Rfam assigns this 347-nucleotide RNA sequence from Hermetia illucens to the family "Arthropod 7SK RNA".
It is annotated as a non-coding RNA gene.
Its Rfam clan is "7SK clan".
Pairs were carried over by alignment from the consensus structure, which is taken from published work.
Taxonomically the source falls in Hermetia (Eukaryota, Panarthropoda, Insecta, Stratiomyomorpha).

RNA sequence: GGAGGUGUGUGUCUUCUGUUUGUGAUGGCACGUAACUGGACAUUGAUCGCUUUAAACCGUUCUUAGUGUUUGCAGAUCUGCUCAGUGGCAUCCGUCACACUCUAAUAGCUCCUUGGCAGAUUAGGCAUGGACCAUGGGCGCGGACUCCCGCUGCACGGCGACGGGUCGGACGCACGGUUCUGUCACCAUUUCCACUGGUGACCGAGGCCACGCACUGUUCCAGGUCUGCCGCCUUUCAAAAUUUCAUAGUUAAGUAAAUUCAAGUAGCUUAGCUUCGGAUUUCCGUACUUAGAUUGUUCAGAACACUUCCACAGACGUGGCACUGCCGAGCAACGCCCAUCUUUUUG
Numbered sequence: 001g002g003a004g005g006u007g008u009g010u011g012u013c014u015u016c017u018g019u020u021u022g023u024g025a026u027g028g029c030a031c032g033u034a035a036c037u038g039g040a041c042a043u044u045g046a047u048c049g050c051u052u053u054a055a056a057c058c059g060u061u062c063u064u065a066g067u068g069u070u071u072g073c074a075g076a077u078c079u080g081c082u083c084a085g086u087g088g089c090a091u092c093c094g095u096c097a098c099a100c101u102c103u104a105a106u107a108g109c110u111c112c113u114u115g116g117c118a119g120a121u122u123a124g125g126c127a128u129g130g131a132c133c134a135u136g137g138g139c140g141c142g143g144a145c146u147c148c149c150g151c152u153g154c155a156c157g158g159c160g161a162c163g164g165g166u167c168g169g170a171c172g173c174a175c176g177g178u179u180c181u182g183u184c185a186c187c188a189u190u191u192c193c194a195c196u197g198g199u200g201a202c203c204g205a206g207g208c209c210a211c212g213c214a215c216u217g218u219u220c221c222a223g224g225u226c227u228g229c230c231g232c233c234u235u236u237c238a239a240a241a242u243u244u245c246a247u248a249g250u251u252a253a254g255u256a257a258a259u260u261c262a263a264g265u266a267g268c269u270u271a272g273c274u275u276c277g278g279a280u281u282u283c284c285g286u287a288c289u290u291a292g293a294u295u296g297u298u299c300a301g302a303a304c305a306c307u308u309c310c311a312c313a314g315a316c317g318u319g320g321c322a323c324u325g326c327c328g329a330g331c332a333a334c335g336c337c338c339a340u341c342u343u344u345u346u347g
Base pairs, nucleotide, nucleotide: 001310002309003308004307005306006305007304008303022098023097024096025095026094036085037084038083041080042079045078046077047076048075049073050072319337320336321335324332325331326330